RNA sequence: GUCAAAGUUUGGGGCGAUUGUCGGACUAGUCGCUGUAACACGUGAACACGAAAAUUCAGACCCAGUGACUAGACCGAACACUCGCGUCCUAAACGAAUGG
Numbered sequence: 001g002u003c004a005a006a007g008u009u010u011g012g013g014g015c016g017a018u019u020g021u022c023g024g025a026c027u028a029g030u031c032g033c034u035g036u037a038a039c040a041c042g043u044g045a046a047c048a049c050g051a052a053a054a055u056u057c058a059g060a061c062c063c064a065g066u067g068a069c070u071a072g073a074c075c076g077a078a079c080a081c082u083c084g085c086g087u088c089c090u091a092a093a094c095g096a097a098u099g100g
Stems, first nucleotide, its partner, number of pairs: 011090006019080003022076003027071005033065002
RNA: mir-286 microRNA precursor family